About this RNA: The family of this 73-nucleotide RNA sequence from Aerococcus suis is "tRNA". It is annotated as a transfer RNA. Lineage of the source: Bacteria > Bacilli > Lactobacillales > Aerococcaceae > Aerococcus. Gene Ontology term of the family: triplet codon-amino acid adaptor activity.
RNA sequence: GGCCCCAUAGCUCAGUGGAUAGAGCACUCGUUUCCUAAACGAGGUGUCGGAAGUUCGAGUCUUCUUGGGGUCG
Numbered sequence: 001g002g003c004c005c006c007a008u009a010g011c012u013c014a015g016u017g018g019a020u021a022g023a024g025c026a027c028u029c030g031u032u033u034c035c036u037a038a039a040c041g042a043g044g045u046g047u048c049g050g051a052a053g054u055u056c057g058a059g060u061c062u063u064c065u066u067g068g069g070g071u072c073g
Stems, first nucleotide, its partner, number of pairs: 001072007010025004027043005049065005